This 94-nucleotide RNA sequence from Durio zibethinus belongs to the Rfam family "MIR2275 microRNA precursor family".
RNA sequence: AAGCCGUAUGUAAGAAUUGGAGGAAAUUAAAUCCAAAACCAAGUAACACUAGUUUUAUUAGGUUUAAUUUCCUCCAAUAUCUUACCUCCGGGAU
Numbered sequence: 001a002a003g004c005c006g007u008a009u010g011u012a013a014g015a016a017u018u019g020g021a022g023g024a025a026a027u028u029a030a031a032u033c034c035a036a037a038a039c040c041a042a043g044u045a046a047c048a049c050u051a052g053u054u055u056u057a058u059u060a061g062g063u064u065u066a067a068u069u070u071c072c073u074c075c076a077a078u079a080u081c082u083u084a085c086c087u088c089c090g091g092g093a094u
Base pairs, nucleotide, nucleotide: 004091005090006089008087011084012083013082014081016078017077018076019075020074021073023071024070025069026068027067028066029065030064032062033061